MIR474 microRNA precursor family: a 154-nucleotide sequence from Populus trichocarpa. Rfam links the family to the GO terms miRNA-mediated post-transcriptional gene silencing and RISC complex.
[Rfam]
RNA sequence: UCCAAAAGUUGCUGGGUCUUGUUGGACAACCGGAUCCAUUAUUGCUGGGUCCUGUUGGGCAACCGUGAUCUAAUCUUCUUGGGUUUGGCUAUAGAGCUAGACCUAAGAGCAUUGGAUAACGCUAUCCAGCUAGAUCCAACAACACUUUUUGACU
Numbered sequence: 001u002c003c004a005a006a007a008g009u010u011g012c013u014g015g016g017u018c019u020u021g022u023u024g025g026a027c028a029a030c031c032g033g034a035u036c037c038a039u040u041a042u043u044g045c046u047g048g049g050u051c052c053u054g055u056u057g058g059g060c061a062a063c064c065g066u067g068a069u070c071u072a073a074u075c076u077u078c079u080u081g082g083g084u085u086u087g088g089c090u091a092u093a094g095a096g097c098u099a100g101a102c103c104u105a106a107g108a109g110c111a112u113u114g115g116a117u118a119a120c121g122c123u124a125u126c127c128a129g130c131u132a133g134a135u136c137c138a139a140c141a142a143c144a145c146u147u148u149u150u151g152a153c154u
Stems, first nucleotide, its partner, number of pairs: 001152002004149006011140001013138007021130006028123001030121001032052007040044001056118001

The source organism's lineage runs through Eukaryota, Tracheophyta, Spermatophyta, Gunneridae and Populus.